[Rfam]
RNA: c-di-AMP riboswitch aptamer (ydaO/yuaA leader)
RNA sequence: GAGAUCCGUUCGCAAAAUCGCAUGGCAGAGGCGGGGGAACCAAUUUCGGGUUUCGCAAGAAGCCCUAGGGGUUAAGUUGCCGGACUUAGCAGUCCAGCAACCGGGUGACUCCCAUCCGAAUCCGACAGCUCACCUCGUAGGCAUUGGGAGAGGCAAA
Numbered sequence: 001g002a003g004a005u006c007c008g009u010u011c012g013c014a015a016a017a018u019c020g021c022a023u024g025g026c027a028g029a030g031g032c033g034g035g036g037g038a039a040c041c042a043a044u045u046u047c048g049g050g051u052u053u054c055g056c057a058a059g060a061a062g063c064c065c066u067a068g069g070g071g072u073u074a075a076g077u078u079g080c081c082g083g084a085c086u087u088a089g090c091a092g093u094c095c096a097g098c099a100a101c102c103g104g105g106u107g108a109c110u111c112c113c114a115u116c117c118g119a120a121u122c123c124g125a126c127a128g129c130u131c132a133c134c135u136c137g138u139a140g141g142c143a144u145u146g147g148g149a150g151a152g153g154c155a156a157a
Stems, first nucleotide, its partner, number of pairs: 005029002031138006041068001069123003077100004103117004